Xanthine riboswitch aptamer (NMT1 RNA): a 50-nucleotide sequence from Cupriavidus necator. For this family Rfam cites "A bacterial riboswitch class senses xanthine and uric acid to regulate genes associated with purine oxidation" (Yu and Breaker, RNA, 2020).
[Rfam]
RNA sequence: CUACGGAGUAGAAGCGUUCAGCGGCACGCCGCCCGGAAAUUGCUCCCGAU
Numbered sequence: 001c002u003a004c005g006g007a008g009u010a011g012a013a014g015c016g017u018u019c020a021g022c023g024g025c026a027c028g029c030c031g032c033c034c035g036g037a038a039a040u041u042g043c044u045c046c047c048g049a050u
Stems, first nucleotide, its partner, number of pairs: 005046006015035001018037002021032004
Dot-bracket structure: ....((((((....[..((.((((....))))..]))...))))))....